[Rfam]
RNA sequence: CCAGCCACGUCCCCUUGUCACUUCUCCAGCCGGCUGUGCCAGUGCUGGACGGAGAACUGAUAAGGGCAGGUGACUGC
Numbered sequence: 001c002c003a004g005c006c007a008c009g010u011c012c013c014c015u016u017g018u019c020a021c022u023u024c025u026c027c028a029g030c031c032g033g034c035u036g037u038g039c040c041a042g043u044g045c046u047g048g049a050c051g052g053a054g055a056a057c058u059g060a061u062a063a064g065g066g067c068a069g070g071u072g073a074c075u076g077c
Stems, first nucleotide, its partner, number of pairs: 012066009022056006030048002